[Rfam]
Record summary:
This 64-nucleotide sequence from Clostridium sp. Maddingley MBC34-26 belongs to the Rfam family "DUF3800-VIII RNA". From the family's description: Bacteroidetes, Cyanobacteria, Firmicutes, Planctomycetes (1 example), Proteobacteria, Tenericutes (1 example). NCBI's taxonomy places the organism under Bacteria, Bacillati, Clostridia, Eubacteriales, Clostridium. A search with the family's covariance model found it, with a score of 48 bits.

RNA sequence: AAUACCCUGUAAAGUCGAAGUCUUAAGUUUGAACUUGAAAGAUAUUUAGACAAUACAGGGUAUU
Numbered sequence: 001a002a003u004a005c006c007c008u009g010u011a012a013a014g015u016c017g018a019a020g021u022c023u024u025a026a027g028u029u030u031g032a033a034c035u036u037g038a039a040a041g042a043u044a045u046u047u048a049g050a051c052a053a054u055a056c057a058g059g060g061u062a063u064u
Stems, first nucleotide, its partner, number of pairs: 001064011014051003021040001023038006
Dot-bracket structure: (((((((((((..(((....(.((((((....)))))).)........)))..)))))))))))